[Rfam]
Rfam assigns this 502-nucleotide part of an RNA from an uncultured haloarchaeon to the family "Archaeal small subunit ribosomal RNA". Its family is annotated with structural constituent of ribosome and ribosome in the Gene Ontology. Its Rfam clan is "SSU clan".
RNA sequence: UCCGGUUGAUCCUGCCGGAGGCCAUUGCUAUUGGGAUUCGAUUUAGCCAUGCUAGUCGCACGAGUUCAGACUCGUGGCGAAUAGCUCAGUAACACGUGGCCAAACUACCCUUCGGAGCUCCAUACCCUCGGGAAACUGAGGCUAAUAGAGCAUACCACAAUCCAGCUGGAAUGAGGAUUGUGCCAAACGCCCCGGCGCCAUAGGAUGUGGCUGCGGCCGAUUAGGUAGAUGGUGGGGUAACGGCCCACCAUGCCAAUAAUCGGUACGGGUUGUGAGAGCAAGAGCCCGGAGACGGUAUCUGAGACAAGAUACCGGGCCCUACGGGGCGCAGCAGGCGCGAAACCUUUACACUGCACGACAGUGCGAUAAGGGGACUCCGAGUGCGAGGGCAUAUAGUCCUCGCUUUUCUGUACCGUAGGGAGGUACAGGAACAAGUGCUGGGCAAGACCGGUGCCAGCCGCCGCGGUAAUACCGGCAGCACGAGUGAUGGCCGAUAUUAUUG
Numbered sequence: 001u002c003c004g005g006u007u008g009a010u011c012c013u014g015c016c017g018g019a020g021g022c023c024a025u026u027g028c029u030a031u032u033g034g035g036a037u038u039c040g041a042u043u044u045a046g047c048c049a050u051g052c053u054a055g056u057c058g059c060a061c062g063a064g065u066u067c068a069g070a071c072u073c074g075u076g077g078c079g080a081a082u083a084g085c086u087c088a089g090u091a092a093c094a095c096g097u098g099g100c101c102a103a104a105c106u107a108c109c110c111u112u113c114g115g116a117g118c119u120c121c122a123u124a125c126c127c128u129c130g131g132g133a134a135a136c137u138g139a140g141g142c143u144a145a146u147a148g149a150g151c152a153u154a155c156c157a158c159a160a161u162c163c164a165g166c167u168g169g170a171a172u173g174a175g176g177a178u179u180g181u182g183c184c185a186a187a188c189g190c191c192c193c194g195g196c197g198c199c200a201u202a203g204g205a206u207g208u209g210g211c212u213g214c215g216g217c218c219g220a221u222u223a224g225g226u227a228g229a230u231g232g233u234g235g236g237g238u239a240a241c242g243g244c245c246c247a248c249c250a251u252g253c254c255a256a257u258a259a260u261c262g263g264u265a266c267g268g269g270u271u272g273u274g275a276g277a278g279c280a281a282g283a284g285c286c287c288g289g290a291g292a293c294g295g296u297a298u299c300u301g302a303g304a305c306a307a308g309a310u311a312c313c314g315g316g317c318c319c320u321a322c323g324g325g326g327c328g329c330a331g332c333a334g335g336c337g338c339g340a341a342a343c344c345u346u347u348a349c350a351c352u353g354c355a356c357g358a359c360a361g362u363g364c365g366a367u368a369a370g371g372g373g374a375c376u377c378c379g380a381g382u383g384c385g386a387g388g389g390c391a392u393a394u395a396g397u398c399c400u401c402g403c404u405u406u407u408c409u410g411u412a413c414c415g416u417a418g419g420g421a422g423g424u425a426c427a428g429g430a431a432c433a434a435g436u437g438c439u440g441g442g443c444a445a446g447a448c449c450g451g452u453g454c455c456a457g458c459c460g461c462c463g464c465g466g467u468a469a470u471a472c473c474g475g476c477a478g479c480a481c482g483a484g485u486g487a488u489g490g491c492c493g494a495u496a497u498u499a500u501u502g
Stems, first nucleotide, its partner, number of pairs: 002018005020492010031380005037374003040338001046336003050333003055078003060075006085291003095215007104208002109204003114199002117151004126141006156182008166173001189196002217263003224254003229251008266288004270281004293314006316327004344370001346369003352365005383403008408428007435481006448475004457464002